[Rfam]
RNA sequence: AGGUCGGGCCUUUCAGGCAUCCUCUCCUAAACCUUUCAAAGGGCCGCCUCCGGGCGGCCCCUUUUUUUUGCGAGU
Numbered sequence: 001a002g003g004u005c006g007g008g009c010c011u012u013u014c015a016g017g018c019a020u021c022c023u024c025u026c027c028u029a030a031a032c033c034u035u036u037c038a039a040a041g042g043g044c045c046g047c048c049u050c051c052g053g054g055c056g057g058c059c060c061c062u063u064u065u066u067u068u069u070g071c072g073a074g075u
Stems, first nucleotide, its partner, number of pairs: 008018004041060008
Shown here is a 75-nucleotide RNA from Sphingomonas hengshuiensis, a member of the family "Makes More Granules Regulator RNA (mmgR)". For this family Rfam cites "Evidence for a second class of S-adenosylmethionine riboswitches and other regulatory RNA motifs in alpha-proteobacteria" (Corbino et al., Genome Biol, 2005). Rfam's curators write: SuhB later renamed mmgR (makes more granules regulator) was a putative non-coding RNA found multiple times in the Agrobacterium tumefaciens genome and related alpha-proteobacteria. Other non-coding RNAs uncovered in the same analysis include: speF, ybhL, metA, and serC.Several studies inSinorhizobium meliloti showed that suhB element is indeed a non-coding RNA:firstly it was detected on Northern blot and called Sm8RNA, secondly in an RNAseq study referred to as SmelC689.The mutant phenotype's (strain lacking the small RNA) cytoplasm contains higher content of polyhydroxybutyrate (PBH)storage granules than wild type strain. The sRNA is required to limit the PBH intracellular accumulation when the nitrogen-fixing Sinorhizobium meliloti is under condition of surplus carbon in relation to nitrogen. Gene Ontology terms of the family: DNA-templated transcription, termination, response to nitrogen compound and protein binding. It is annotated as a small RNA.